[Rfam]
RNA sequence: UUGGAAAACUUGAAGACUUUAGCCUGUAUACUUGGAAGAUUUGAAGACUUUAGCUUGUAUACUCAGAAGAUUUGAAGACUUCAAUU
Numbered sequence: 001u002u003g004g005a006a007a008a009c010u011u012g013a014a015g016a017c018u019u020u021a022g023c024c025u026g027u028a029u030a031c032u033u034g035g036a037a038g039a040u041u042u043g044a045a046g047a048c049u050u051u052a053g054c055u056u057g058u059a060u061a062c063u064c065a066g067a068a069g070a071u072u073u074g075a076a077g078a079c080u081u082c083a084a085u086u
Stems, first nucleotide, its partner, number of pairs: 001084005010075005018067003025059004032053005
The family of this 86-nucleotide sequence from Solanum commersonii is "MIR8024 microRNA precursor family". Taxonomically the source falls in Solanum (Eukaryota, Streptophytina, eudicotyledons, Solanoideae). Gene Ontology terms of the family: miRNA-mediated post-transcriptional gene silencing and RISC complex. Pairs were carried over by alignment from the consensus structure, which was predicted with RNAalifold. It scores 70 bits against the family's covariance model.